RNA sequence: GCAGACUCACUCUGCACUUGGCUGCAGCCUCCAGGCAGGUGCUUUUUCCGUCUGCCAGAGAACCAUUCCAGGGAGCUGUGGGAGCCUUGACCUCUCAGGGGUGAUGCAGCUUCCUGGAGACAGAAUG
Numbered sequence: 001g002c003a004g005a006c007u008c009a010c011u012c013u014g015c016a017c018u019u020g021g022c023u024g025c026a027g028c029c030u031c032c033a034g035g036c037a038g039g040u041g042c043u044u045u046u047u048c049c050g051u052c053u054g055c056c057a058g059a060g061a062a063c064c065a066u067u068c069c070a071g072g073g074a075g076c077u078g079u080g081g082g083a084g085c086c087u088u089g090a091c092c093u094c095u096c097a098g099g100g101g102u103g104a105u106g107c108a109g110c111u112u113c114c115u116g117g118a119g120a121c122a123g124a125a126u127g
Base pairs, nucleotide, nucleotide: 001055002054003053004052005051006050014042015041016040017039018038019037020036022034023033024032067118068117069116070115071114072113073112075110076109077108078107079106080105084102085101086100087099
This 127-nucleotide RNA from Heterocephalus glaber belongs to the Rfam family "Small nucleolar RNA SNORA77". The literature on the family includes a 2006 paper in RNA by Schattner et al., "A computational screen for mammalian pseudouridylation guide H/ACA RNAs". The base pairs follow the family's consensus structure, which was predicted with RNAalifold. The source organism's lineage runs through Eukaryota, Opisthokonta, Deuterostomia, Sarcopterygii and Heterocephalus. Rfam 15.1 lists 843 matches to the family in 607 species. About the family: ACA63 (SNORA77) is a member of the H/ACA class of snoRNAs that guide the sites of modification of uridines to pseudouridines. This snoRNA was identified by computational screening and its expression in mouse experimentally verified by Northern blot and primer extension analysis. ACA63 is proposed to guide the pseudouridylation of 18S rRNA U814. It scores 119 bits against the family's covariance model.